Rfam assigns this 120-nucleotide RNA from Mumia sp. ZJ1417 to the family "mraW RNA".
RNA sequence: GCGGGGUCGUACGACGAGGCCUCUGGGCCGCUUGCUCCACCACCUGGCACCACUUCCCCGGUGCCAGAGGUGACUUCCCAGGGCAAGCGGCCAGGGACCUGGUCGGACGAACCACAGGCG
Numbered sequence: 001g002c003g004g005g006g007u008c009g010u011a012c013g014a015c016g017a018g019g020c021c022u023c024u025g026g027g028c029c030g031c032u033u034g035c036u037c038c039a040c041c042a043c044c045u046g047g048c049a050c051c052a053c054u055u056c057c058c059c060g061g062u063g064c065c066a067g068a069g070g071u072g073a074c075u076u077c078c079c080a081g082g083g084c085a086a087g088c089g090g091c092c093a094g095g096g097a098c099c100u101g102g103u104c105g106g107a108c109g110a111a112c113c114a115c116a117g118g119c120g
Base pairs, nucleotide, nucleotide: 010107012105013104014103015102018099019098021096022095023094024093025092027091028090029089030088031087032086033085034084035083038072039071040070041069044067045066046065047064048063049062050061

A search with the family's covariance model found it, with a score of 51 bits. By type it is a cis-regulatory element.